[Rfam]
Shown here is a 76-nucleotide RNA sequence from Crocodylus porosus, a member of the family "Mammalian CPEB3 ribozyme". The base pairs follow the family's consensus structure, which is taken from published work. Taxonomically the source falls in Crocodylus (Eukaryota, Euteleostomi, Sauropsida, Crocodylia). The match comes from Rfam's covariance-model search (50 bits).
RNA sequence: UUGCAAGUUCAUAGGCCAUAGCAGAAGCAUUCACAGUGUGGCCCUGUCAGAGUCCUUUGAAUCUGCAAAUUUUGCU
Numbered sequence: 001u002u003g004c005a006a007g008u009u010c011a012u013a014g015g016c017c018a019u020a021g022c023a024g025a026a027g028c029a030u031u032c033a034c035a036g037u038g039u040g041g042c043c044c045u046g047u048c049a050g051a052g053u054c055c056u057u058u059g060a061a062u063c064u065g066c067a068a069a070u071u072u073u074g075c076u
Stems, first nucleotide, its partner, number of pairs: 014043004020076007027039003048065004053060002
Rfam's curators write: The mammalian CPEB3 ribozyme is a self cleaving RNA located in the second intron of the CPEB3 gene which belongs to a family of genes regulating messenger RNA polyadenylation.